This 342-nucleotide RNA from Fusarium oligoseptatum belongs to the Rfam family "Nuclear RNase P". Taxonomically the source falls in Fusarium solani species complex (Eukaryota, Ascomycota, saccharomyceta, Pezizomycotina). The family's consensus secondary structure is taken from published work.
RNA sequence: UCCCCAACGCUGCGUUUCCAUGCUACAAACAGAGAGACUUCUUUCACGGAAGCCUCUCAACCCUUUUUCUUCGGAACUGGACCUUUACAAGCAUGUGGGAAAUUCGGAGUACUGCCUCAAAUACCACCUCCGCCCCCCUCCCCGGGGAUGCGGACGGUCUGCCGGUAACGGCCUGGCGUCAAUCGACGCUUGCAAACGACAUCAGAAAUCUCGGAGCCGUUCAUCUAAAACGUGUCUCCAUGGGAAGUCGUUGCGAGGCUUGUUUGGAGAAAACUGAAGUGCGAUACGCAGCGUCCUCUGUCCUUCUGGGCGAGGAUGACUCAAUUCCGAUCACUCUGGGGA
Dot-bracket structure: ((((((..(((((((...((((...........(................................................)........)))).........[[[[[.....((((..........................................((((....))))..(((((......)))))....((((((............(((.....................))).......))))))..))))...........................)))))))((((((.............)))))).......]]]]].......))))))